Shown here is a 140-nucleotide RNA, a member of the family "Group II catalytic intron D1-D4-4".
RNA sequence: CAGUGGGUGAAAGCCCCACCCGGCGAAAUGCUCCAGCCGGAAGCAACCGGAGCAACUAUGGAGGUAACGAAAUGGUUGAAGCCUUCGGAUAGCGGGCCACAAAAUUCGGUGGCAGCGCGAGUGUGCAGGCCGUAACGCGA
Numbered sequence: 001c002a003g004u005g006g007g008u009g010a011a012a013g014c015c016c017c018a019c020c021c022g023g024c025g026a027a028a029u030g031c032u033c034c035a036g037c038c039g040g041a042a043g044c045a046a047c048c049g050g051a052g053c054a055a056c057u058a059u060g061g062a063g064g065u066a067a068c069g070a071a072a073u074g075g076u077u078g079a080a081g082c083c084u085u086c087g088g089a090u091a092g093c094g095g096g097c098c099a100c101a102a103a104a105u106u107c108g109g110u111g112g113c114a115g116c117g118c119g120a121g122u123g124u125g126c127a128g129g130c131c132g133u134a135a136c137g138c139g140a
Base pairs, nucleotide, nucleotide: 020040021039022038023037024036048087049086050085051084052083053078054077055076056075057074058073063068096113097112098111099110100109117133118132119131

Group II introns are found in rRNA, tRNA and mRNA of organelles in fungi, plants and protists, and also in mRNA in bacteria. Its family is annotated with Group II intron splicing in the Gene Ontology. The family has 90 seed sequences and 840 matches in Rfam 15.1.